[Rfam]
The family of this 128-nucleotide sequence from Sorex araneus is "Small Cajal body specific RNA 15". It is one of the family's seed sequences.

RNA sequence: CUGGAGACGGAGCAAAAGGAGUCCUUGAAGUCAAGCCGACUCUGCUCUGAGCCUCCGAAAUGAAACAGGUAGAAAGAACAGGUCUUGUGUGCACAGUGAACGCAAGGCCUACGUAUCUACCAACACGG
Numbered sequence: 001c002u003g004g005a006g007a008c009g010g011a012g013c014a015a016a017a018g019g020a021g022u023c024c025u026u027g028a029a030g031u032c033a034a035g036c037c038g039a040c041u042c043u044g045c046u047c048u049g050a051g052c053c054u055c056c057g058a059a060a061u062g063a064a065a066c067a068g069g070u071a072g073a074a075a076g077a078a079c080a081g082g083u084c085u086u087g088u089g090u091g092c093a094c095a096g097u098g099a100a101c102g103c104a105a106g107g108c109c110u111a112c113g114u115a116u117c118u119a120c121c122a123a124c125a126c127g128g
Stems, first nucleotide, its partner, number of pairs: 003056004008051001011048001018043006024035004068121006075114001080110008

Gene Ontology terms of the family: nucleolus, Cajal body and RNA processing. For this family Rfam cites "Cajal body-specific small nuclear RNAs: a novel class of 2'-O-methylation and pseudouridylation guide RNAs" (Darzacq et al., EMBO J, 2002). From the family's description: scaRNAs are a specific class of small nuclear RNAs which localise to the Cajal bodies and guide the modification of RNA polymerase II transcribed spliceosomal RNAs U1, U2, U4, U5 and U12. ACA45 belongs to the H/ACA box class of guide RNAs as it has the predicted hairpin-hinge-hairpin-tail structure, the conserved H/ACA-box motifs and is found associated with GAR1. ACA45 is predicted to guide the pseudouridylation of residue U37 of the U2 spliceosomal snRNA.